[Rfam]
RNA: c-di-AMP riboswitch aptamer (ydaO/yuaA leader)
RNA sequence: AAGGAAAGUCAGCCUAGUUUCUCCAGACCCUACAAAGGGAAAAGGAGAAAGCGGGGGAACCAACAGUGGGGCGCAUUUCUAGGGAAACGCCAACUAGAAAGGGAUAACUCUCAAUCCUAGCCCGUCAGCUAACCUCGUCGGCAAUGAGAGGAGACUGA
Numbered sequence: 001a002a003g004g005a006a007a008g009u010c011a012g013c014c015u016a017g018u019u020u021c022u023c024c025a026g027a028c029c030c031u032a033c034a035a036a037g038g039g040a041a042a043a044g045g046a047g048a049a050a051g052c053g054g055g056g057g058a059a060c061c062a063a064c065a066g067u068g069g070g071g072c073g074c075a076u077u078u079c080u081a082g083g084g085a086a087a088c089g090c091c092a093a094c095u096a097g098a099a100a101g102g103g104a105u106a107a108c109u110c111u112c113a114a115u116c117c118u119a120g121c122c123c124g125u126c127a128g129c130u131a132a133c134c135u136c137g138u139c140g141g142c143a144a145u146g147a148g149a150g151g152a153g154a155c156u157g158a
Stems, first nucleotide, its partner, number of pairs: 012142003018050007051138006061068002069123003077099006102117004